[Rfam]
RNA: Cyano-1 RNA
Organism: Synechococcus sp. MIT S9508
RNA sequence: CGAAGUGUGAGGAGUGGACAACGCAUCUUCCGGGUCGAAACAAGGACAGACUCCGGUCAUGCGUUUCACU
Numbered sequence: 001c002g003a004a005g006u007g008u009g010a011g012g013a014g015u016g017g018a019c020a021a022c023g024c025a026u027c028u029u030c031c032g033g034g035u036c037g038a039a040a041c042a043a044g045g046a047c048a049g050a051c052u053c054c055g056g057u058c059a060u061g062c063g064u065u066u067c068a069c070u
Stems, first nucleotide, its partner, number of pairs: 020065007031055003034051003